Record summary
Rfam assigns this 166-nucleotide sequence from Hibiscus trionum to the family "mir-393 microRNA precursor family". NCBI's taxonomy places the organism under Eukaryota, Euphyllophyta, eudicotyledons, Gunneridae, Hibiscus. The family has 27 seed sequences and 1,052 matches in Rfam 15.1. It scores 80 bits against the family's covariance model.
RNA sequence: GGUGGAGAGCUCCAAAGGGAUCGCAUUGAUCUGAUGUUUACGGCUUCCUCUGAAACCCUGAAUGAAUGAAUGAAUGAAUGAAUGAAUGGUCGGCUGAUUCUUACUGUAAGAUUUUUGUUGAUUCAGUUCGGUCAUUGGAUCAUGCGAUCCCUUCGGAAUUUUCCAC
Numbered sequence: 001g002g003u004g005g006a007g008a009g010c011u012c013c014a015a016a017g018g019g020a021u022c023g024c025a026u027u028g029a030u031c032u033g034a035u036g037u038u039u040a041c042g043g044c045u046u047c048c049u050c051u052g053a054a055a056c057c058c059u060g061a062a063u064g065a066a067u068g069a070a071u072g073a074a075u076g077a078a079u080g081a082a083u084g085a086a087u088g089g090u091c092g093g094c095u096g097a098u099u100c101u102u103a104c105u106g107u108a109a110g111a112u113u114u115u116u117g118u119u120g121a122u123u124c125a126g127u128u129c130g131g132u133c134a135u136u137g138g139a140u141c142a143u144g145c146g147a148u149c150c151c152u153u154c155g156g157a158a159u160u161u162u163c164c165a166c
Base pairs, nucleotide, nucleotide: 002166003165004164005163006162008160009159011157012156013155015153016152017151018150019149020148021147023145024144025143026142028141029140030139031138032137033136034135035134036133